The family of this 128-nucleotide RNA from Cyprinus carpio is "Small nucleolar RNA SNORA65".
RNA sequence: CCUGCCACUGUCCUUGUCUGUAAAAGUGAUUUUGUACAAUCCAGUGGAGGCUUAUAGUGACCCAGCUUUUGGAAGCGGGGCGGCUCCAACCUAAUGGCUAACUCUGCGCCGAAAGGCCUGGAACAAAC
Numbered sequence: 001c002c003u004g005c006c007a008c009u010g011u012c013c014u015u016g017u018c019u020g021u022a023a024a025a026g027u028g029a030u031u032u033u034g035u036a037c038a039a040u041c042c043a044g045u046g047g048a049g050g051c052u053u054a055u056a057g058u059g060a061c062c063c064a065g066c067u068u069u070u071g072g073a074a075g076c077g078g079g080g081c082g083g084c085u086c087c088a089a090c091c092u093a094a095u096g097g098c099u100a101a102c103u104c105u106g107c108g109c110c111g112a113a114a115g116g117c118c119u120g121g122a123a124c125a126a127a128c
Stems, first nucleotide, its partner, number of pairs: 005047006018034001020032001021029001062121004066116004071110002076106005085097002
Dot-bracket structure: ....((((((.......(.((.......)..).).......))))))..............((((((((.((...(((((....((.........))....)))))..))..)))).)))).......

Rfam describes the family as follows. U65 belongs to the H/ACA class of snoRNAs which are thought to guide the sites of modification of uridines to pseudouridines. The family's RNA type in Rfam is H/ACA-box small nucleolar RNA.